The record is a 100-nucleotide RNA from Photobacterium gaetbulicola, which matches "Purine riboswitch aptamer" in Rfam. Rfam's curators write: Riboswitches are metabolite binding domains within certain messenger RNAs that serve as precision sensors for their corresponding targets. Taxonomically the source falls in Photobacterium gaetbulicola (Bacteria, Pseudomonadota, Vibrionales, Vibrionaceae).

[Rfam]
RNA sequence: GAAAACAUAAGCAAACGGCUUCGUAUAACCCCAUUAAUACGGUAUGGGGGUCUCUACCAGAAUCCGUAAAAUUCUGAUUACGAAGAGUUAAGCGCAGGUG
Numbered sequence: 001g002a003a004a005a006c007a008u009a010a011g012c013a014a015a016c017g018g019c020u021u022c023g024u025a026u027a028a029c030c031c032c033a034u035u036a037a038u039a040c041g042g043u044a045u046g047g048g049g050g051u052c053u054c055u056a057c058c059a060g061a062a063u064c065c066g067u068a069a070a071a072u073u074c075u076g077a078u079u080a081c082g083a084a085g086a087g088u089u090a091a092g093c094g095c096a097g098g099u100g
Stems, first nucleotide, its partner, number of pairs: 019085007029049006058076006